[Rfam]
RNA sequence: AAAAAGGGCUUCUGCCAUGCGUGGCACGGGGGGGGCCGCGCGCCUACCCCGCGGAAUCGGCAUCAAGAGAUUUCGGAAGCACAAUUUUUGUGGGGAGGGGCCGCUGGUAACCGCCUGUUCCGGCGCCCCG
Numbered sequence: 001a002a003a004a005a006g007g008g009c010u011u012c013u014g015c016c017a018u019g020c021g022u023g024g025c026a027c028g029g030g031g032g033g034g035g036c037c038g039c040g041c042g043c044c045u046a047c048c049c050c051g052c053g054g055a056a057u058c059g060g061c062a063u064c065a066a067g068a069g070a071u072u073u074c075g076g077a078a079g080c081a082c083a084a085u086u087u088u089u090g091u092g093g094g095g096a097g098g099g100g101c102c103g104c105u106g107g108u109a110a111c112c113g114c115c116u117g118u119u120c121c122g123g124c125g126c127c128c129c130g
Base pairs, nucleotide, nucleotide: 008080009079010078011077012076013026014025015024016023017022027051028050029049030048031047033045034044035043052075053074054073055072056071057070058069098128099127100126101125103124104123105122106121107120109119110118111117
U11 spliceosomal RNA: a 130-nucleotide RNA from Pterocles burchelli. Its family is annotated with U11 snRNP, pre-mRNA 5'-splice site binding and mRNA 5'-splice site recognition in the Gene Ontology. It is annotated as a spliceosomal small nuclear RNA. NCBI's taxonomy places the organism under Eukaryota, Eumetazoa, Gnathostomata, Archelosauria, Pterocles.